[Rfam]
RNA sequence: UCUGUUGUUGUAAACAUCCCCGACUGGAAGCUGUAAGACAGCAAAGCUUUCAGUCAGAUGUUUGCUGCUACCGG
Numbered sequence: 001u002c003u004g005u006u007g008u009u010g011u012a013a014a015c016a017u018c019c020c021c022g023a024c025u026g027g028a029a030g031c032u033g034u035a036a037g038a039c040a041g042c043a044a045a046g047c048u049u050u051c052a053g054u055c056a057g058a059u060g061u062u063u064g065c066u067g068c069u070a071c072c073g074g
Stems, first nucleotide, its partner, number of pairs: 002073001004071002008067001010065009023054010
A member of the RNA family "mir-30 microRNA precursor family" from Gulo gulo, 74 nucleotides long. Rfam's curators write: This family consists of the mammalian microRNA (miRNA) precursor mir-30a. The family has 175 seed sequences and 3,879 matches in Rfam 15.1. The literature on the family includes a 2001 paper in Cell by Ambros, "microRNAs: tiny regulators with great potential". A search with the family's covariance model found it, with a score of 68 bits. Rfam links the family to the GO terms RISC complex and gene silencing by miRNA.